[Rfam]
RNA sequence: AGACUGAUGAUGACUCCCUCAUAUGCAUUCCUUGGAAAAUCUGAACAAAUCAGUGAGAACUUCCUAUGAUUAAGAAAAAACAAUAACAAAAAACU
Dot-bracket structure: ((..(....................((((..(((...........)))...))))...................................)..))
Numbered sequence: 001a002g003a004c005u006g007a008u009g010a011u012g013a014c015u016c017c018c019u020c021a022u023a024u025g026c027a028u029u030c031c032u033u034g035g036a037a038a039a040u041c042u043g044a045a046c047a048a049a050u051c052a053g054u055g056a057g058a059a060c061u062u063c064c065u066a067u068g069a070u071u072a073a074g075a076a077a078a079a080a081c082a083a084u085a086a087c088a089a090a091a092a093a094c095u
Stems, first nucleotide, its partner, number of pairs: 001095002005091001026055004032048003
A member of the RNA family "Small nucleolar RNA SNORD116" from Odobenus rosmarus, 95 nucleotides long. The literature on the family includes a 2000 paper in Proc Natl Acad Sci U S A by Cavaille et al., "Identification of brain-specific and imprinted small nucleolar RNA genes exhibiting an unusual genomic organization". It scores 46 bits against the family's covariance model.